RNA sequence: AACACAUGAUGACAACAGUUUCGGUCCCAAAUGAAUAGAAAUUGAUUACUGUUAUGAGAUCUUCUGAUGUU
Numbered sequence: 001a002a003c004a005c006a007u008g009a010u011g012a013c014a015a016c017a018g019u020u021u022c023g024g025u026c027c028c029a030a031a032u033g034a035a036u037a038g039a040a041a042u043u044g045a046u047u048a049c050u051g052u053u054a055u056g057a058g059a060u061c062u063u064c065u066g067a068u069g070u071u
Stems, first nucleotide, its partner, number of pairs: 001071004
This 71-nucleotide RNA from Scleropages formosus belongs to the Rfam family "Small nucleolar RNA SNORD73".
The base pairs follow the family's consensus structure, which was predicted with PFOLD.
The family's RNA type in Rfam is C/D-box small nucleolar RNA.
The organism belongs to Scleropages, within Eukaryota.
On this family, see Rebane et al., Gene 1998: "A novel snoRNA (U73) is encoded within the introns of the human and mouse ribosomal protein S3a genes".